[Rfam]
RNA sequence: UGCGCACGUUCGGGGUAUCAGGACACGCGGUCUGUCACGAAAACGCGUUCCUGAUUGAGAAACACCCGUGGAACCUGAUGCGGCUGAUACCGUCGGAGGGAAACGAAUAUGCAGCGGU
Numbered sequence: 001u002g003c004g005c006a007c008g009u010u011c012g013g014g015g016u017a018u019c020a021g022g023a024c025a026c027g028c029g030g031u032c033u034g035u036c037a038c039g040a041a042a043a044c045g046c047g048u049u050c051c052u053g054a055u056u057g058a059g060a061a062a063c064a065c066c067c068g069u070g071g072a073a074c075c076u077g078a079u080g081c082g083g084c085u086g087a088u089a090c091c092g093u094c095g096g097a098g099g100g101a102a103a104c105g106a107a108u109a110u111g112c113a114g115c116g117g118u
Stems, first nucleotide, its partner, number of pairs: 007105004011068004016062001017055007074099003080093004